The record is a 125-nucleotide RNA from Streptomyces malaysiensis, which matches "Streptomyces RNA 3920" in Rfam. It scores 113 bits against the family's covariance model. Rfam's curators write: Identified by deep sequencing of transcriptome at the end of exponential growth phase. Sequencing size consistent with northern blot size. Streptomyces specific. On this family, see Vockenhuber et al., RNA Biol 2011: "Deep sequencing-based identification of small non-coding RNAs in Streptomyces coelicolor". The family's RNA type in Rfam is small RNA.
[Rfam]
Nucleotides: 125
Base pairs, nucleotide, nucleotide: 001014002013003012004011015051016050017049018048021032022031023030033045034044035043036042058075061072063070064069077082085121086120087119088118089117090116091115092114093113094112095111096110097109099106
Number, partner (000 for none) and nucleotide at each position: 001014g002013a003012u004011a005000g006000g007000u008000c009000c010000a011004u012003g013002u014001c015051g016050c017049u018048a019000c020000u021032g022031u023030g024000a025000u026000u027000g028000g029000a030023c031022a032021c033045u034044g035043a036042c037000g038000c039000u040000g041000a042036g043035u044034c045033a046000a047000c048018u049017a050016g051015c052000c053000u054000u055000g056000u057000u058075c059000g060000a061072g062000c063070g064069g065000u066000u067000c068000u069064c070063c071000a072061c073000g074000a075058g076000a077082g078000g079000a080000u081000c082077c083000g084000g085121g086120g087119c088118g089117u090116c091115u092114c093113a094112a095111g096110c097109c098000a099106c100000g101000a102000g103000g104000g105000g106099g107000g108000a109097g110096g111095c112094u113093u114092g115091a116090g117089a118088c119087g120086c121085c122000c123000g124000u125000u